[Rfam]
Nucleotides: 116
Stems, first nucleotide, its partner, number of pairs: 007018003031050008053110007062101004067097001069095004074090002
Number, partner (000 for none) and nucleotide at each position: 001000a002000u003000c004000u005000a006000g007018c008017u009016u010000a011000g012000u013000u014000a015000g016009g017008a018007g019000g020000c021000c022000a023000a024000c025000a026000c027000u028000a029000u030000a031050a032049u033048c034047a035046g036045a037044u038043u039000u040000u041000u042000g043038g044037a045036u046035c047034u048033g049032a050031u051000u052000g053110c054109c055108a056107a057106g058105g059104c060000a061000a062101u063100u064099u065098g066000a067097g068000u069095g070094g071093a072092c073000u074090g075089u076000u077000u078000g079000u080000u081000c082000u083000c084000c085000a086000u087000c088000a089075a090074u091000u092072g093071u094070c095069u096000u097067c098065c099064a100063a101062g102000c103000a104059g105058c106057c107056u108055u109054g110053g111000a112000c113000a114000a115000u116000c
This 116-nucleotide sequence from Olea europaea belongs to the Rfam family "Small nucleolar RNA U19". The base pairs follow the family's consensus structure, which was predicted with WAR. It scores 58 bits against the family's covariance model. The family's RNA type in Rfam is H/ACA-box small nucleolar RNA. For this family Rfam cites "Experimental RNomics: identification of 140 candidates for small non-messenger RNAs in the plant Arabidopsis thaliana" (Marker et al., Curr Biol, 2002).